[Rfam]
RNA sequence: CGAACCGUGACGGGAGAGCCCGGCCCCCCGGGGCCGGCGCCGAAGGAGCAAACCCUCCCCGGGAAUCUCUCAGGCCCCUGUACCGUCACGGCGAG
Numbered sequence: 001c002g003a004a005c006c007g008u009g010a011c012g013g014g015a016g017a018g019c020c021c022g023g024c025c026c027c028c029c030g031g032g033g034c035c036g037g038c039g040c041c042g043a044a045g046g047a048g049c050a051a052a053c054c055c056u057c058c059c060c061g062g063g064a065a066u067c068u069c070u071c072a073g074g075c076c077c078c079u080g081u082a083c084c085g086u087c088a089c090g091g092c093g094a095g
Base pairs, nucleotide, nucleotide: 006090007089008088009087010086011085012084013083020037021036022035023034039075040074041073042071043070046069047068048067053061
Background:
Rfam assigns this 95-nucleotide sequence from Isoptericola sp. CG 20/1183 to the family "Glycine riboswitch aptamer". Rfam links the family to the GO term glycine biosynthetic process. The match comes from Rfam's covariance-model search (67 bits). Lineage of the source: Bacteria > Bacillati > Micrococcales > Promicromonosporaceae > Isoptericola.